A member of the RNA family "Pseudomonas sRNA P26" from Psychromonas ingrahamii, 59 nucleotides long.

[Rfam]
RNA sequence: UUUUAUAACUUAUUAGCCAUGUAAAUGGCAUUGGCUGGUGAUUAUUUAAUCACCGGCCU
Numbered sequence: 001u002u003u004u005a006u007a008a009c010u011u012a013u014u015a016g017c018c019a020u021g022u023a024a025a026u027g028g029c030a031u032u033g034g035c036u037g038g039u040g041a042u043u044a045u046u047u048a049a050u051c052a053c054c055g056g057c058c059u
Base pairs, nucleotide, nucleotide: 014030016029017028018027033058034057035056036055037054038053039052040051041050042049
The source organism's lineage runs through Bacteria, Pseudomonadota, Psychromonadaceae, Psychromonas and Psychromonas ingrahamii.
On this family, see Livny et al., Nucleic Acids Res 2006: "Identification of 17 Pseudomonas aeruginosa sRNAs and prediction of sRNA-encoding genes in 10 diverse pathogens using the bioinformatic tool sRNAPredict2".
The family's RNA type in Rfam is non-coding RNA gene.
The family's consensus secondary structure was predicted with RNAalifold.
A search with the family's covariance model found it, with a score of 41 bits.
About the family: This small RNA (sRNA) was computationally identified in the genome of the opportunistic pathogen Pseudomonas aeruginosa and its expression verified by northern blot analysis. P26 is conserved across many Gammaproteobacteria species and appears to be consistently located between the DNA directed RNA polymerase (beta subunit) and 50S ribosomal protein L7/L12 genes.